[Rfam]
RNA sequence: CCUGCUCUGCUUUUUCCGAAGCCCUGCGUUUCACGCGGGGUAUUGAUGUAGGAAAGGCGGGGCAAU
Numbered sequence: 001c002c003u004g005c006u007c008u009g010c011u012u013u014u015u016c017c018g019a020a021g022c023c024c025u026g027c028g029u030u031u032c033a034c035g036c037g038g039g040g041u042a043u044u045g046a047u048g049u050a051g052g053a054a055a056g057g058c059g060g061g062g063c064a065a066u
Stems, first nucleotide, its partner, number of pairs: 003064010014054004021041009

The family of this 66-nucleotide RNA sequence is "DUF3800-VIII RNA".
The base pairs follow the family's consensus structure, which is taken from published work.
Rfam describes the family as follows. Bacteroidetes, Cyanobacteria, Firmicutes, Planctomycetes (1 example), Proteobacteria, Tenericutes (1 example).